[Rfam]
RNA sequence: GGGAAGCAUCAAAGAGUUUUGUGAUGUUAUCUGAUACAAUCUUCCUAUAUAAAAAAAAAAUCUCUGCAUUUCCUGCUUGCGGUAGCUGAGCUUUGUUCCGCGAGUCUCAUAUUAUGCAAAGACAUUA
Numbered sequence: 001g002g003g004a005a006g007c008a009u010c011a012a013a014g015a016g017u018u019u020u021g022u023g024a025u026g027u028u029a030u031c032u033g034a035u036a037c038a039a040u041c042u043u044c045c046u047a048u049a050u051a052a053a054a055a056a057a058a059a060a061u062c063u064c065u066g067c068a069u070u071u072c073c074u075g076c077u078u079g080c081g082g083u084a085g086c087u088g089a090g091c092u093u094u095g096u097u098c099c100g101c102g103a104g105u106c107u108c109a110u111a112u113u114a115u116g117c118a119a120a121g122a123c124a125u126u127a
Base pairs, nucleotide, nucleotide: 001032002031003030005028006027007026008025009024010023011022063119075105076104077103078102079101080100081099082098084096
The family of this 127-nucleotide RNA sequence from Brassica oleracea is "Small nucleolar RNA snoR104". The base pairs follow the family's consensus structure, which was predicted with WAR. The match comes from Rfam's covariance-model search (81 bits). By type it is an H/ACA-box small nucleolar RNA. Its family is annotated with nucleolus and RNA processing in the Gene Ontology.